RNA: c-di-AMP riboswitch aptamer (ydaO/yuaA leader)
Organism: Motilibacter peucedani
RNA sequence: UACUCCCGAACACCGGGACAGGAGCGGGGGACCCACUCCUCCAGAGGAUCUCCGCCGUGUGGCACAGCCACCGGCUCGGGGUGAAGCCGCGACGCAGCGGCCGGGGCGCUUCCAGUCCCCGAACCCGACAGCUCACCUCGCAGGCGUACCUGGAAGGUCCU
Numbered sequence: 001u002a003c004u005c006c007c008g009a010a011c012a013c014c015g016g017g018a019c020a021g022g023a024g025c026g027g028g029g030g031a032c033c034c035a036c037u038c039c040u041c042c043a044g045a046g047g048a049u050c051u052c053c054g055c056c057g058u059g060u061g062g063c064a065c066a067g068c069c070a071c072c073g074g075c076u077c078g079g080g081g082u083g084a085a086g087c088c089g090c091g092a093c094g095c096a097g098c099g100g101c102c103g104g105g106g107c108g109c110u111u112c113c114a115g116u117c118c119c120c121g122a123a124c125c126c127g128a129c130a131g132c133u134c135a136c137c138u139c140g141c142a143g144g145c146g147u148a149c150c151u152g153g154a155a156g157g158u159c160c161u
Stems, first nucleotide, its partner, number of pairs: 004023003024141006034078001079126003087100004103120004